[Rfam]
The record is a 272-nucleotide RNA sequence from Sciurus carolinensis, which matches "Mason-Pfizer monkey virus packaging signal" in Rfam. The match comes from Rfam's covariance-model search (145 bits). Pairs were carried over by alignment from the consensus structure, which was predicted with PFOLD. A reference for the family is Mustafa et al. (2004), "Mutational analysis of the predicted secondary RNA structure of the Mason-Pfizer monkey virus packaging signal", Virus Res. NCBI's taxonomy places the organism under Eukaryota, Euteleostomi, Amniota, Rodentia, Sciurus. From the family's description: This family represents a group of sequences that are related to the Mason-Pfizer monkey virus (MPMV) packaging signal. The packaging signal is located in the 5' UTR and is required for specific RNA encapsidation. It is annotated as a cis-regulatory element.
RNA sequence: CGGAAAUUGUGGGGCUCGGAUACGGGAGAAUUCGCAAGGGAAGAGGCGUUUAAUCGUUCAGCCCAACAAAGCAAAAGUCAGUUCAAGAAAGAUCACUGCAGGAGCCUGCUGCACUGCUCUUAAAGGUACAGUAAUGCCUAAUUAUGGGACAAGAAUUAAGUAAGCAUAAAGUUUUUGUUAAUCAAUUAAAAGAAGCUUUAAAGACACGGGGAGUAAAGUUUAAGAGUAAUGAUCUUUUUAAGUUUUUUGACCUUAUUAGGACACCUGUCCGU
Numbered sequence: 001c002g003g004a005a006a007u008u009g010u011g012g013g014g015c016u017c018g019g020a021u022a023c024g025g026g027a028g029a030a031u032u033c034g035c036a037a038g039g040g041a042a043g044a045g046g047c048g049u050u051u052a053a054u055c056g057u058u059c060a061g062c063c064c065a066a067c068a069a070a071g072c073a074a075a076a077g078u079c080a081g082u083u084c085a086a087g088a089a090a091g092a093u094c095a096c097u098g099c100a101g102g103a104g105c106c107u108g109c110u111g112c113a114c115u116g117c118u119c120u121u122a123a124a125g126g127u128a129c130a131g132u133a134a135u136g137c138c139u140a141a142u143u144a145u146g147g148g149a150c151a152a153g154a155a156u157u158a159a160g161u162a163a164g165c166a167u168a169a170a171g172u173u174u175u176u177g178u179u180a181a182u183c184a185a186u187u188a189a190a191a192g193a194a195g196c197u198u199u200a201a202a203g204a205c206a207c208g209g210g211g212a213g214u215a216a217a218g219u220u221u222a223a224g225a226g227u228a229a230u231g232a233u234c235u236u237u238u239u240a241a242g243u244u245u246u247u248u249g250a251c252c253u254u255a256u257u258a259g260g261a262c263a264c265c266u267g268u269c270c271g272u
Base pairs, nucleotide, nucleotide: 009023010022011021032046033045035043083126084125092118094116097113098112099111100110101109132152135149137148138147139146140145157200158199159198160196161195207249208248209247210246211245212244213243214242217235218234220232221231222230258272259270260269261268262267